[Rfam]
RNA sequence: GGGGCUGACUGGUUUUGACAGCAAGACGAAUGGUUAUGUAAGCAUGCCGAGCCUUGCGAUGACGCUCGUAAAUCUUGAUCGCGAACAACAAUUGGCGAAAACAAUUACGCUCUCGCAGCUUAAUCGAAGUACAGUAGAUUCAAGUUUAAUCUUGCCACAAGGUGACAAGACGAGACAUCCCGCGGGUGGAGAUGCCUGAUUCCGGCCUGAGCACGGGGUGCUAAUCAACUUCAGGAUAGUUCUGUUAAAGCUUCGGUGGCAGGGCGAAAUUCAGAAGAUAAGCGUUGAUUUAGGGUGUCUGUUCCCUUGUUAGCGACGAAAACCAAUGACAGAAUAAGCAUGUAGAAAGCUUAGUGAUUCCUUGUUUGGACGAGGGUUCGAGUCCCUCCAGCUCCACAG
Numbered sequence: 001g002g003g004g005c006u007g008a009c010u011g012g013u014u015u016u017g018a019c020a021g022c023a024a025g026a027c028g029a030a031u032g033g034u035u036a037u038g039u040a041a042g043c044a045u046g047c048c049g050a051g052c053c054u055u056g057c058g059a060u061g062a063c064g065c066u067c068g069u070a071a072a073u074c075u076u077g078a079u080c081g082c083g084a085a086c087a088a089c090a091a092u093u094g095g096c097g098a099a100a101a102c103a104a105u106u107a108c109g110c111u112c113u114c115g116c117a118g119c120u121u122a123a124u125c126g127a128a129g130u131a132c133a134g135u136a137g138a139u140u141c142a143a144g145u146u147u148a149a150u151c152u153u154g155c156c157a158c159a160a161g162g163u164g165a166c167a168a169g170a171c172g173a174g175a176c177a178u179c180c181c182g183c184g185g186g187u188g189g190a191g192a193u194g195c196c197u198g199a200u201u202c203c204g205g206c207c208u209g210a211g212c213a214c215g216g217g218g219u220g221c222u223a224a225u226c227a228a229c230u231u232c233a234g235g236a237u238a239g240u241u242c243u244g245u246u247a248a249a250g251c252u253u254c255g256g257u258g259g260c261a262g263g264g265c266g267a268a269a270u271u272c273a274g275a276a277g278a279u280a281a282g283c284g285u286u287g288a289u290u291u292a293g294g295g296u297g298u299c300u301g302u303u304c305c306c307u308u309g310u311u312a313g314c315g316a317c318g319a320a321a322a323c324c325a326a327u328g329a330c331a332g333a334a335u336a337a338g339c340a341u342g343u344a345g346a347a348a349g350c351u352u353a354g355u356g357a358u359u360c361c362u363u364g365u366u367u368g369g370a371c372g373a374g375g376g377u378u379c380g381a382g383u384c385c386c387u388c389c390a391g392c393u394c395c396a397c398a399g
Stems, first nucleotide, its partner, number of pairs: 001395007019368002021365005030358002033355004038350002043342005048068005055083006176220006183209004188203004195235005239265009249279001251277004283315007293306003298333006372388005

transfer-messenger RNA: a 399-nucleotide RNA from a Bacteroidales bacterium.
The match comes from Rfam's covariance-model search (156 bits).
The family's RNA type in Rfam is non-coding RNA gene.
Bacterial tmRNA, also known as 10Sa RNA or SsrA, is named for its dual tRNA and mRNA-like properties.
Gene Ontology term of the family: RNA catabolic process.